[Rfam]
RNA: tRNA
RNA sequence: ACGGGUGUAGCUCAGUUGGUAGAGCACUGGUCUCCAAAACCAGGUGUCGUGAGUUCGAGUCUCUCCUCCCGUG
Numbered sequence: 001a002c003g004g005g006u007g008u009a010g011c012u013c014a015g016u017u018g019g020u021a022g023a024g025c026a027c028u029g030g031u032c033u034c035c036a037a038a039a040c041c042a043g044g045u046g047u048c049g050u051g052a053g054u055u056c057g058a059g060u061c062u063c064u065c066c067u068c069c070c071g072u073g
Base pairs, nucleotide, nucleotide: 001072002071003070004069005068007066010025011024012023013022027043028042029041030040031039049065051063052062053061